[Rfam]
Rfam assigns this 99-nucleotide sequence from Virgibacillus salarius to the family "Guanidine-I riboswitch aptamer". This family represents a conserved RNA structure found upstream of the ykkC and yxkD genes in Bacillus subtilis and related genes in other bacteria. The function of this family is unclear although it has been suggested that it may function to switch on efflux pumps and detoxification systems in response to harmful environmental molecules. Gene Ontology term of the family: regulation of gene expression.
RNA sequence: AUAGCGAUUUCCUAGGGUUCCGCAAUUGUUUUCAAUUGGUCUGGUCCGAGAGGAAAUGCACGUUAUACGUGUACACGGAGGGAUAAAAGCCCGGGAGGA
Dot-bracket structure: ......((((((..((...(((((((((....))))))..).)).))....))))))((((((...)))))).(.[...(((.......))).)..]..
Numbered sequence: 001a002u003a004g005c006g007a008u009u010u011c012c013u014a015g016g017g018u019u020c021c022g023c024a025a026u027u028g029u030u031u032u033c034a035a036u037u038g039g040u041c042u043g044g045u046c047c048g049a050g051a052g053g054a055a056a057u058g059c060a061c062g063u064u065a066u067a068c069g070u071g072u073a074c075a076c077g078g079a080g081g082g083a084u085a086a087a088a089g090c091c092c093g094g095g096a097g098g099a
Stems, first nucleotide, its partner, number of pairs: 007057006015047002020044002022041001023038006058072006074094001076097001080092003